RNA sequence: CCCAGUAUUCCCCUGCUGGUACUCUAUGAGGCAUGCUUGCUGCGCGCUGUGCAGUUGGUUUGGAGCCCUUUUCGACAAUGUACCAAAUCACGCGUUUUCGGGAGGGGUGGAAACCGUGAGGUGGAUACCUUCCUGGAAGCCUCAUCCGGGUAAGGGA
Numbered sequence: 001c002c003c004a005g006u007a008u009u010c011c012c013c014u015g016c017u018g019g020u021a022c023u024c025u026a027u028g029a030g031g032c033a034u035g036c037u038u039g040c041u042g043c044g045c046g047c048u049g050u051g052c053a054g055u056u057g058g059u060u061u062g063g064a065g066c067c068c069u070u071u072u073c074g075a076c077a078a079u080g081u082a083c084c085a086a087a088u089c090a091c092g093c094g095u096u097u098u099c100g101g102g103a104g105g106g107g108u109g110g111a112a113a114c115c116g117u118g119a120g121g122u123g124g125a126u127a128c129c130u131u132c133c134u135g136g137a138a139g140c141c142u143c144a145u146c147c148g149g150g151u152a153a154g155g156g157a
Base pairs, nucleotide, nucleotide: 002019003018004017005016006015007014028071029069030068031067032062033061035059036058037057039055040054041053042052043051088104091101105130106129107128108127114121115120132150133149134148135147136146137145